RNA sequence: UCCCCUCAAAUCAGGUAGGACUACCCGCUGAACUUAAGCAUAUCAAUAAGCGGAGGAAAAGAAACCAACAGGGAUUGCCUCAGUAACGGCGAGUGAAGCGGCAAGAGCUCAACUUUGGAAUCGCUGCGGCGAGUUGUAGUCUGGAGGUGGCCGGUCCCGGCGCCAGCGCGCAGCCAAGUCCUUUGGAACAAGGCGCCUGAGAGGGUGACAGCCCCGUGGCAGUUUGUGCUGGUGCCGCCUCGGCCCACCGACGAGUCGAGUUGUUUGGGAAUGCAGCUCUAAGUGGGUGGUAAAUUCCAUCUAAAGCUAAAUACCGGCGAGAGACCGAUAGCGAACAAGUACAGUAAUGGAAAGAUGAAAAGCACUUUGAAAAGAGAGUGAAACAGUACGUGAAAUUGUUGAAAGGGAAGGGCUUGCACCCAGACACGGCCUUCUGGCCGGGCCAGCAUCGGGUGGGAGGGAGCGACAACGAGCAGUCGAUGUAGUACAGCCCUCUGGGCUGUGCAUUAUACGUCUUGCUUUCUGGCUCCUCUCCCGCCCGAGGACCGCAGCAAUAAGGAUGCUGGCGCAAUGGUUGCAAGCCAC
Numbered sequence: 001u002c003c004c005c006u007c008a009a010a011u012c013a014g015g016u017a018g019g020a021c022u023a024c025c026c027g028c029u030g031a032a033c034u035u036a037a038g039c040a041u042a043u044c045a046a047u048a049a050g051c052g053g054a055g056g057a058a059a060a061g062a063a064a065c066c067a068a069c070a071g072g073g074a075u076u077g078c079c080u081c082a083g084u085a086a087c088g089g090c091g092a093g094u095g096a097a098g099c100g101g102c103a104a105g106a107g108c109u110c111a112a113c114u115u116u117g118g119a120a121u122c123g124c125u126g127c128g129g130c131g132a133g134u135u136g137u138a139g140u141c142u143g144g145a146g147g148u149g150g151c152c153g154g155u156c157c158c159g160g161c162g163c164c165a166g167c168g169c170g171c172a173g174c175c176a177a178g179u180c181c182u183u184u185g186g187a188a189c190a191a192g193g194c195g196c197c198u199g200a201g202a203g204g205g206u207g208a209c210a211g212c213c214c215c216g217u218g219g220c221a222g223u224u225u226g227u228g229c230u231g232g233u234g235c236c237g238c239c240u241c242g243g244c245c246c247a248c249c250g251a252c253g254a255g256u257c258g259a260g261u262u263g264u265u266u267g268g269g270a271a272u273g274c275a276g277c278u279c280u281a282a283g284u285g286g287g288u289g290g291u292a293a294a295u296u297c298c299a300u301c302u303a304a305a306g307c308u309a310a311a312u313a314c315c316g317g318c319g320a321g322a323g324a325c326c327g328a329u330a331g332c333g334a335a336c337a338a339g340u341a342c343a344g345u346a347a348u349g350g351a352a353a354g355a356u357g358a359a360a361a362g363c364a365c366u367u368u369g370a371a372a373a374g375a376g377a378g379u380g381a382a383a384c385a386g387u388a389c390g391u392g393a394a395a396u397u398g399u400u401g402a403a404a405g406g407g408a409a410g411g412g413c414u415u416g417c418a419c420c421c422a423g424a425c426a427c428g429g430c431c432u433u434c435u436g437g438c439c440g441g442g443c444c445a446g447c448a449u450c451g452g453g454u455g456g457g458a459g460g461g462a463g464c465g466a467c468a469a470c471g472a473g474c475a476g477u478c479g480a481u482g483u484a485g486u487a488c489a490g491c492c493c494u495c496u497g498g499g500c501u502g503u504g505c506a507u508u509a510u511a512c513g514u515c516u517u518g519c520u521u522u523c524u525g526g527c528u529c530c531u532c533u534c535c536c537g538c539c540c541g542a543g544g545a546c547c548g549c550a551g552c553a554a555u556a557a558g559g560a561u562g563c564u565g566g567c568g569c570a571a572u573g574g575u576u577g578c579a580a581g582c583c584a585c
Base pairs, nucleotide, nucleotide: 024055025053026052027051028050029049035042036041065072066071076103077102078101079100086094087093106308107307108306109305114139115138118135119134121132122131123130124129146249147248149245150244151243156242159236160235161234162233163232164231165230168229169228170227171226172225173224178194180193181192182191183190197201204214205213258279259278260277261276262275263274264273285302286301287300288299289298342349343348365376366375367374368373411583412582413581414580415579416578417577418576420574421573422572427440428439429438430437431436444565445564446563447562448561449560450559
Dot-bracket structure: .......................((((((.....((....))......))))).).........((....))...((((......((.....)).....))))..((((....((..((.((((....)))).))..))......((.(((....(..(((((((..((((((....(.((((......)))))..(...)..((.......)).........))))))))))))).....))))..))........(((((((........))))))).....(((((........)))))..)))).................................((....))...............((((....))))..................................((((((((.(((....(((((....)))))...(((((((............................................................................................................)))))))......))).))))))))..